Alphaproteobacteria transfer-messenger RNA: a 377-nucleotide RNA sequence from Albimonas donghaensis. Taxonomically the source falls in Albimonas (Bacteria, Pseudomonadota, Rhodobacterales, Paracoccaceae). Rfam classes the family as a non-coding RNA gene. Rfam's curators write: Bacterial tmRNA, also known as 10Sa RNA or SsrA, is named for its dual tRNA and mRNA-like properties. A search with the family's covariance model found it, with a score of 287 bits.
[Rfam]
RNA sequence: CCCCUUUUCAUGGGCGGGUCGGGGGGCUAUAUAAGCUCUGUCUCCCAUCCGGGGGACUAUGGCGAUAAACGCGCACGUAAUAAGCGGCUCGGACCCGGGGGCGGUACCCGGCGGCUCCACCAAUAUCCCUGCCAUCGGUCAUUGACGAUGGGGUUCGGGGAAGCGAGGGGCCGAAACAGGAUCGACGGACGUCUAAAGGUGUUAGCUUUCGCUCGGCAGGAUGCCACCGUUACCGGCUCAAAUUGUACAGUUGCCAAUGACAACCGUGCUCCGGUGGCCGUCGCUGCGUAACGCAGCUUAAACCACCGAACUUCAAGUCCCUGGGCUUAGCCGUUCAGGGCGGGGCUCGCAGGCGCCUGGCAACAGAAGCCUGCACU
Number, nucleotide and partner (000 for none) at each position: 001c000002c000003c000004c000005u000006u000007u000008u000009c000010a000011u000012g000013g000014g000015c000016g000017g000018g000019u000020c000021g000022g000023g000024g000025g000026g000027c000028u000029a000030u000031a000032u000033a000034a000035g000036c000037u000038c000039u000040g057041u056042c055043u054044c053045c052046c051047a000048u000049c000050c000051g046052g045053g044054g043055g042056a041057c040058u000059a000060u000061g213062g212063c211064g210065a209066u000067a000068a000069a000070c000071g206072c205073g202074c201075a200076c199077g000078u000079a000080a000081u000082a000083a000084g000085c191086g190087g000088c000089u188090c187091g186092g000093a000094c000095c111096c110097g109098g108099g107100g000101g000102c000103g000104g000105u000106a000107c099108c098109c097110g096111g095112c173113g172114g171115c170116u169117c168118c167119a000120c000121c000122a000123a000124u000125a000126u000127c000128c000129c000130u000131g000132c000133c000134a000135u000136c000137g000138g000139u000140c000141a000142u000143u000144g000145a000146c000147g000148a000149u000150g000151g000152g000153g000154u000155u000156c000157g000158g000159g000160g000161a000162a000163g000164c000165g000166a000167g118168g117169g116170g115171c114172c113173g112174a000175a000176a000177c000178a000179g000180g000181a000182u000183c000184g000185a000186c091187g090188g089189a000190c086191g085192u000193c000194u000195a000196a000197a000198g000199g076200u075201g074202u073203u000204a000205g072206c071207u000208u000209u065210c064211g063212c062213u061214c229215g228216g227217c000218a000219g000220g239221a238222u000223g237224c236225c235226a000227c216228c215229g214230u000231u000232a000233c000234c000235g225236g224237c223238u221239c220240a000241a000242a000243u000244u000245g000246u000247a000248c000249a000250g000251u000252u000253g000254c000255c000256a000257a000258u000259g000260a000261c000262a000263a000264c000265c000266g000267u000268g000269c000270u000271c000272c000273g000274g000275u000276g000277g000278c000279c000280g000281u000282c000283g000284c000285u000286g000287c000288g000289u000290a000291a000292c000293g000294c000295a000296g000297c000298u000299u000300a000301a000302a000303c000304c000305a000306c000307c000308g000309a000310a000311c000312u000313u000314c000315a000316a000317g000318u000319c000320c000321c000322u000323g000324g000325g000326c000327u000328u000329a000330g000331c000332c000333g000334u000335u000336c000337a000338g000339g000340g000341c000342g000343g358344g357345g356346c355347u000348c000349g374350c373351a372352g371353g370354c369355g346356c345357c344358u343359g000360g000361c000362a000363a000364c000365a000366g000367a000368a000369g354370c353371c352372u351373g350374c349375a000376c000377u000